[Rfam]
Notes: The family of this 403-nucleotide RNA from Peribacillus deserti is "Bacterial RNase P class B". For this family Rfam cites "Ribonuclease P: unity and diversity in a tRNA processing ribozyme" (Frank and Pace, Annu Rev Biochem, 1998). It scores 320 bits against the family's covariance model. Rfam classes the family as a ribozyme. Lineage of the source: Bacteria > Bacillota > Caryophanales > Bacillaceae > Peribacillus. Gene Ontology terms of the family: ribonuclease P activity, tRNA processing and dimeric ribonuclease P complex. Rfam describes the family as follows. Ribonuclease P (RNase P) is a ubiquitous endoribonuclease, found in archaea, bacteria and eukarya as well as chloroplasts and mitochondria. Its best characterised activity is the generation of mature 5'-ends of tRNAs by cleaving the 5'-leader elements of precursor-tRNAs. Cellular RNase Ps are ribonucleoproteins. RNA from bacterial RNase Ps retains its catalytic activity in the absence of the protein subunit, i.e. it is a ribozyme. Isolated eukaryotic and archaeal RNase P RNA has not been shown to retain its catalytic function, but is still essential for the catalytic activity of the holoenzyme. Although the archaeal and eukaryotic holoenzyme s have a much greater protein content than the bacterial ones, the RNA cores from all the three lineages are homologous -- helices corresponding to P1, P2, P3, P4, and P10/11 are common to all cellular RNase P RNAs. Yet, there is considerable sequence variation, particularly among the eukaryotic RNAs.
RNA sequence: ACGUUCGGGUAAUCGCUGCAGCAGCUUAUGCUACGCUGUAGAGGAAAGUCCAUGCUCGCACAGGCUGCGAUGCCUGUAGUGUUCGUGCCUAGCGAAGUCAUAAGCUAGGGCAGCUGGGUGUAUACUCGGCUGACGGCUGGGAAAGCACCUAAGUCAGUUUCCUGAUAUGGUGCCGGUACCUGUAAAAGUGCCACAGUGACGUAGCCUUUCUAGAAAUGGAAAGGGUGGAACGAGGGUAAACCCCACGAGCGAGAAACCCAAAUUUAGGUAGGGGAACCUUCUCAAUUGGAAAUGAACAAAGAGAAGGACGGAUAUAUUUAUAUCCGUAGAUAGAUGAUUGCCGCCCUGGUACGAGACAUUUUUGUCGUUAUUAGUACCUAGGAACAAAACAUGGCUUACAGAA
Number, nucleotide and partner (000 for none) at each position: 001a000002c000003g000004u403005u402006c401007g399008g342009g341010u340011a339012a338013u337014c336015g000016c041017u040018g039019c038020a037021g036022c000023a000024g000025c000026u000027u000028a000029u000030g000031c000032u000033a000034c000035g000036c021037u020038g019039u018040a017041g016042a000043g000044g000045a000046a397047a396048g395049u000050c394051c393052a392053u391054g390055c253056u252057c251058g250059c249060a077061c076062a075063g074064g073065c072066u000067g000068c000069g000070a000071u000072g065073c064074c063075u062076g061077u060078a000079g000080u000081g000082u000083u248084c247085g246086u245087g244088c109089c108090u107091a106092g105093c104094g000095a000096a000097g000098u000099c000100a000101u000102a000103a000104g093105c092106u091107a090108g089109g088110g134111c132112a131113g130114c129115u128116g127117g126118g125119u124120g000121u000122a000123u000124a119125c118126u117127c116128g115129g114130c113131u112132g111133a000134c110135g243136g242137c000138u182139g181140g180141g179142a000143a000144a000145g000146c172147a171148c170149c169150u000151a000152a000153g166154u165155c164156a163157g162158u000159u000160u000161c000162c157163u156164g155165a154166u153167a000168u000169g149170g148171u147172g146173c000174c000175g000176g000177u000178a000179c141180c140181u139182g138183u000184a000185a000186a000187a000188g241189u240190g237191c236192c235193a000194c000195a000196g000197u000198g000199a000200c000201g000202u000203a000204g000205c224206c223207u222208u221209u220210c219211u218212a217213g000214a000215a000216a000217u212218g211219g210220a209221a208222a207223g206224g205225g000226u000227g000228g000229a000230a000231c000232g000233a000234g000235g192236g191237u190238a000239a000240a189241c188242c136243c135244c087245a086246c085247g084248a083249g059250c058251g057252a056253g055254a000255a000256a000257c273258c272259c271260a000261a000262a000263u000264u000265u000266a000267g000268g000269u000270a000271g259272g258273g257274g000275a000276a000277c307278c306279u305280u304281c303282u302283c301284a000285a000286u000287u000288g000289g000290a000291a000292a000293u000294g000295a000296a000297c000298a000299a000300a000301g283302a282303g281304a280305a279306g278307g277308a327309c326310g325311g324312a323313u322314a321315u320316a000317u000318u000319u000320a315321u314322a313323u312324c311325c310326g309327u308328a000329g000330a000331u000332a000333g000334a000335u000336g014337a013338u012339u011340g010341c009342c008343g000344c382345c381346c000347u000348g378349g377350u376351a375352c374353g000354a000355g000356a000357c000358a000359u000360u000361u000362u000363u000364g000365u000366c000367g000368u000369u000370a000371u000372u000373a000374g352375u351376a350377c349378c348379u000380a000381g345382g344383a000384a000385c000386a000387a000388a000389a000390c054391a053392u052393g051394g050395c048396u047397u046398a000399c007400a000401g006402a005403a004